[Rfam]
Notes: The family of this 206-nucleotide RNA from Sorghum bicolor is "MIR6217 microRNA precursor family". The base pairs follow the family's consensus structure, which was predicted with RNAalifold. Rfam 15.1 lists 2,266 matches to the family in 13 species. The organism belongs to Sorghum, within Eukaryota. A search with the family's covariance model found it, with a score of 127 bits. Gene Ontology terms of the family: RISC complex and miRNA-mediated post-transcriptional gene silencing.
Nucleotides: 206
Base pairs, nucleotide, nucleotide: 001206002205003204004203005202006201007200008199009198010196011195012194013193016190017189018188019187020186021185022184023183024182025181026180027179028178029177031175032174033173037169038168061167062166066164067163069161070160071159072157073156074155080147081146082145083144087142088141089140090139091138092137093132094131095130096129097128098127099126100125101124102123103122107117108116
Number, partner (000 for none) and nucleotide at each position: 001206u002205g003204g004203c005202u006201a007200c008199a009198a010196a011195a012194u013193a014000a015000c016190u017189u018188a019187u020186u021185u022184u023183g024182u025181a026180g027179c028178c029177a030000a031175u032174u033173u034000g035000a036000g037169u038168u039000a040000c041000g042000a043000u044000a045000a046000u047000u048000a049000c050000u051000a052000u053000a054000u055000u056000a057000a058000u059000u060000u061167a062166c063000a064000a065000u066164a067163u068000u069161a070160u071159a072157g073156u074155a075000a076000c077000u078000c079000c080147u081146u082145a083144c084000u085000a086000a087142g088141u089140g090139g091138u092137u093132u094131a095130c096129u097128a098127u099126a100125a101124c102123a103122u104000u105000a106000c107117g108116g109000u110000a111000g112000a113000u114000a115000u116108c117107u118000c119000u120000a121000u122103g123102u124101g125100u126099u127098a128097u129096a130095g131094u132093a133000a134000c135000a136000u137092a138091a139090c140089u141088a142087u143000c144083g145082u146081a147080a148000a149000u150000a151000u152000g153000u154000a155074u156073a157072c158000a159071u160070a161069u162000u163067a164066u165000c166062g167061u168038a169037a170000a171000u172000g173033g174032a175031g176000g177029u178028g179027g180026c181025u182024a183023c184022a185021g186020a187019a188018u189017a190016a191000c192000a193013u194012a195011u196010u197000u198009u199008u200007g201006u202005a203004g204003c205002u206001a